Shown here is a 251-nucleotide part of an RNA from Halomarina oriensis, a member of the family "Archaeal large subunit ribosomal RNA". A search with the family's covariance model found it, with a score of 2860 bits. Rfam links the family to the GO terms structural constituent of ribosome and ribosome.
RNA sequence: UGGUACUUGACGUGAACGUUCGUAUAGUACGAGAGGAACUACGAAUGGUUGCCACUGGUGUACCGGUUGUCCGAGAGGGCACGUGCCGGGCAGCUACGCAACAAGGGGUAAGAGCUGAACGCAUCUAAGCUCGAAACCCACAUGGAAAAGAAGUACCGUUGAGGUCACUCGUAGAAGACGAGUUCGAUAGACUCGGGGUGUACGCAUCAAGGUAACGAGAUGUUCAGCCCGCGAGCACUAAUCGACCGAAG
Numbered sequence: 001u002g003g004u005a006c007u008u009g010a011c012g013u014g015a016a017c018g019u020u021c022g023u024a025u026a027g028u029a030c031g032a033g034a035g036g037a038a039c040u041a042c043g044a045a046u047g048g049u050u051g052c053c054a055c056u057g058g059u060g061u062a063c064c065g066g067u068u069g070u071c072c073g074a075g076a077g078g079g080c081a082c083g084u085g086c087c088g089g090g091c092a093g094c095u096a097c098g099c100a101a102c103a104a105g106g107g108g109u110a111a112g113a114g115c116u117g118a119a120c121g122c123a124u125c126u127a128a129g130c131u132c133g134a135a136a137c138c139c140a141c142a143u144g145g146a147a148a149a150g151a152a153g154u155a156c157c158g159u160u161g162a163g164g165u166c167a168c169u170c171g172u173a174g175a176a177g178a179c180g181a182g183u184u185c186g187a188u189a190g191a192c193u194c195g196g197g198g199u200g201u202a203c204g205c206a207u208c209a210a211g212g213u214a215a216c217g218a219g220a221u222g223u224u225c226a227g228c229c230c231g232c233g234a235g236c237a238c239u240a241a242u243c244g245a246c247c248g249a250a251g
Stems, first nucleotide, its partner, number of pairs: 001158008011144004017047008048102005056096003063089005068081005105139003112132005163247004167183005188240003192235004196230003204223005211216001
Pairs were carried over by alignment from the consensus structure, which is taken from published work.